[Rfam]
RNA sequence: AGUGUAGGCAAGGGGUGCUGGAGAGGCCGGCUGAGAUUUAGACCCGAUAAGGUCUAUGACCCUGUAACCUGAUCUGGGUAAUGCCAGCGUAGGGAAUGCAGCAGAUUUUCUGA
Numbered sequence: 001a002g003u004g005u006a007g008g009c010a011a012g013g014g015g016u017g018c019u020g021g022a023g024a025g026g027c028c029g030g031c032u033g034a035g036a037u038u039u040a041g042a043c044c045c046g047a048u049a050a051g052g053u054c055u056a057u058g059a060c061c062c063u064g065u066a067a068c069c070u071g072a073u074c075u076g077g078g079u080a081a082u083g084c085c086a087g088c089g090u091a092g093g094g095a096a097u098g099c100a101g102c103a104g105a106u107u108u109u110c111u112g113a
Stems, first nucleotide, its partner, number of pairs: 008099003011063004017031005039056006068093004074087004